[Rfam]
RNA sequence: GUAGGGUACGGCGACAUGCGACCGGUGACGGUCUGGGGCAAGCUGGUGGGGUCCCUAUGCGCCAUAGCUGGCGUGCUGACCAUUGCCCUGCCCGUACCGGUGAUCGUGUCAAAC
Numbered sequence: 001g002u003a004g005g006g007u008a009c010g011g012c013g014a015c016a017u018g019c020g021a022c023c024g025g026u027g028a029c030g031g032u033c034u035g036g037g038g039c040a041a042g043c044u045g046g047u048g049g050g051g052u053c054c055c056u057a058u059g060c061g062c063c064a065u066a067g068c069u070g071g072c073g074u075g076c077u078g079a080c081c082a083u084u085g086c087c088c089u090g091c092c093c094g095u096a097c098c099g100g101u102g103a104u105c106g107u108g109u110c111a112a113a114c
Stems, first nucleotide, its partner, number of pairs: 001114002005110001007108005014101002018097001020095001037077004049063002
Rfam assigns this 114-nucleotide sequence from Macrostomum lignano to the family "Potassium channel RNA editing signal".
Gene Ontology term of the family: adenosine to inosine editing.
The match comes from Rfam's covariance-model search (96 bits).
By type it is a cis-regulatory element.
Taxonomically the source falls in Macrostomum (Eukaryota, Metazoa, Bilateria, Macrostomorpha).
The family's consensus secondary structure is taken from published work.